[Rfam]
RNA sequence: UAUUAGGUUGGUGCAAAAGUAAUAGCUGUUUUUCCCAUUACUAAUUUUCCCAUUACUAAUGGGAAAAACAGCUAUUACUUUUGCACCAACCUAAUA
Numbered sequence: 001u002a003u004u005a006g007g008u009u010g011g012u013g014c015a016a017a018a019g020u021a022a023u024a025g026c027u028g029u030u031u032u033u034c035c036c037a038u039u040a041c042u043a044a045u046u047u048u049c050c051c052a053u054u055a056c057u058a059a060u061g062g063g064a065a066a067a068a069c070a071g072c073u074a075u076u077a078c079u080u081u082u083g084c085a086c087c088a089a090c091c092u093a094a095u096a
Base pairs, nucleotide, nucleotide: 001096002095003094004093005092006091007090008089009088010087011086012085013084014083015082016081017080018079019078020077021076022075023074024073025072026071027070028069029068030067031066032065033064034063035062036061037060038059039058040057
Background: Rfam assigns this 96-nucleotide sequence from Hipposideros armiger to the family "mir-548 microRNA precursor family". Rfam links the family to the GO terms miRNA-mediated post-transcriptional gene silencing and RISC complex. The literature on the family includes a 2010 paper in BMC Biol by Witten et al., "Ultra-high throughput sequencing-based small RNA discovery and discrete statistical biomarker analysis in a collection of cervical tumours and matched controls". The family has 11 seed sequences and 3,009 matches in Rfam 15.1.